The family of this 88-nucleotide RNA is "Small nucleolar RNA SNORD60".
[Rfam]
RNA sequence: AGCCGCUGAUGACUUCCAUUAACUUUUUCUGACACCUCGUAUGAAAGCUGUAUUUCAGCAUCUGAUUAUAAACUUAAGUCUGAGGCUC
Number, nucleotide and partner (000 for none) at each position: 001a087002g086003c085004c084005g000006c000007u000008g000009a000010u000011g000012a000013c000014u000015u000016c000017c000018a000019u000020u000021a000022a000023c000024u000025u000026u000027u000028u000029c000030u000031g000032a000033c000034a000035c000036c000037u000038c000039g000040u000041a000042u000043g000044a000045a000046a000047g059048c058049u057050g056051u000052a000053u000054u000055u000056c050057a049058g048059c047060a000061u000062c000063u000064g000065a000066u000067u000068a000069u000070a000071a000072a000073c000074u000075u000076a000077a000078g000079u000080c000081u000082g000083a000084g004085g003086c002087u001088c000
Source information:
It is one of the family's seed sequences. The family's RNA type in Rfam is C/D-box small nucleolar RNA. On this family, see Galardi et al., Mol Cell Biol 2002: "Purified box C/D snoRNPs are able to reproduce site-specific 2'-O-methylation of target RNA in vitro". Clan: SNORD60 clan.